[Rfam]
RNA sequence: GAGCCCGGACUAUCAAGAGAGCUAUCCGUCGACAGUAUACAUUGGAUACACUGUCAUGGAGUUGCUCUCUUUAUGGCCGGGCAG
Numbered sequence: 001g002a003g004c005c006c007g008g009a010c011u012a013u014c015a016a017g018a019g020a021g022c023u024a025u026c027c028g029u030c031g032a033c034a035g036u037a038u039a040c041a042u043u044g045g046a047u048a049c050a051c052u053g054u055c056a057u058g059g060a061g062u063u064g065c066u067c068u069c070u071u072u073a074u075g076g077c078c079g080g081g082c083a084g
Stems, first nucleotide, its partner, number of pairs: 015071004020066003025060004031055003035051002